[Rfam]
The family of this 92-nucleotide RNA from Comamonas terrigena is "Selenocysteine transfer RNA".

RNA sequence: GGAAGGCAAUCGUGCCCGGUGGCGCGGCCGGGCUUCAAACCCGGUGAGGGGUGUCAGUCACUCCUGGGUUGGUUCGACUCCAGCUGCUUUCC
Numbered sequence: 001g002g003a004a005g006g007c008a009a010u011c012g013u014g015c016c017c018g019g020u021g022g023c024g025c026g027g028c029c030g031g032g033c034u035u036c037a038a039a040c041c042c043g044g045u046g047a048g049g050g051g052u053g054u055c056a057g058u059c060a061c062u063c064c065u066g067g068g069u070u071g072g073u074u075c076g077a078c079u080c081c082a083g084c085u086g087c088u089u090u091c092c
Stems, first nucleotide, its partner, number of pairs: 001092008011026006027045006047065005069083004
A search with the family's covariance model found it, with a score of 78 bits.